Rfam assigns this 63-nucleotide sequence from Aquamicrobium lusatiense to the family "ybhL leader". By type it is a cis-regulatory leader. Lineage of the source: Bacteria > Pseudomonadota > Alphaproteobacteria > Hyphomicrobiales > Aquamicrobium. Rfam links the family to the GO term regulation of gene expression. For this family Rfam cites "Evidence for a second class of S-adenosylmethionine riboswitches and other regulatory RNA motifs in alpha-proteobacteria" (Corbino et al., Genome Biol, 2005). A search with the family's covariance model found it, with a score of 56 bits.
RNA sequence: CAGGCAUGCUGGAGGCCCCGCCAGCGGCGCCUGGGCAUGCGCCCGACACCGGACGGGGCAAGA
Numbered sequence: 001c002a003g004g005c006a007u008g009c010u011g012g013a014g015g016c017c018c019c020g021c022c023a024g025c026g027g028c029g030c031c032u033g034g035g036c037a038u039g040c041g042c043c044c045g046a047c048a049c050c051g052g053a054c055g056g057g058g059c060a061a062g063a
Stems, first nucleotide, its partner, number of pairs: 015059006025051003032045005